The family of this 52-nucleotide RNA sequence from Solanum lycopersicum is "MIR1886 microRNA precursor family". Gene Ontology terms of the family: miRNA-mediated post-transcriptional gene silencing and RISC complex. Rfam 15.1 lists 1,053 matches to the family in 6 species.
RNA sequence: UGAGAUGGAAUCAGUGUUUGUACAUGCGAUUUUACGCUGAUUCCACCUCAAG
Numbered sequence: 001u002g003a004g005a006u007g008g009a010a011u012c013a014g015u016g017u018u019u020g021u022a023c024a025u026g027c028g029a030u031u032u033u034a035c036g037c038u039g040a041u042u043c044c045a046c047c048u049c050a051a052g
Stems, first nucleotide, its partner, number of pairs: 001050004006045012018029003